A member of the RNA family "U4atac minor spliceosomal RNA" from Microcebus murinus, 126 nucleotides long. The base pairs follow the family's consensus structure, which is taken from published work. The family's RNA type in Rfam is spliceosomal small nuclear RNA. It scores 105 bits against the family's covariance model.
RNA sequence: ACCAUCCUUUUCUUGGGGUAGUGCAACUAUCCAAUUAAUGAGUAGUGAGGGCAGUACUGCUAAUGCCUACACAACACAUCUGCAUCAACUAGAGCUUUGCUUUACUUUGGUGCAAUUUUUGGGAAA
Numbered sequence: 001a002c003c004a005u006c007c008u009u010u011u012c013u014u015g016g017g018g019u020a021g022u023g024c025a026a027c028u029a030u031c032c033a034a035u036u037a038a039u040g041a042g043u044a045g046u047g048a049g050g051g052c053a054g055u056a057c058u059g060c061u062a063a064u065g066c067c068u069a070c071a072c073a074a075c076a077c078a079u080c081u082g083c084a085u086c087a088a089c090u091a092g093a094g095c096u097u098u099g100c101u102u103u104a105c106u107u108u109g110g111u112g113c114a115a116u117u118u119u120u121g122g123g124a125a126a
Stems, first nucleotide, its partner, number of pairs: 006018004021060003026055003030051003038046002082113006090104006

Rfam's curators write: U4atac is an essential component of the minor U12-type spliceosome complex which is required for removal of the rarer class of eukaryotic introns (AT-AC, U12-type). Lineage of the source: Eukaryota > Eumetazoa > Chordata > Mammalia > Microcebus.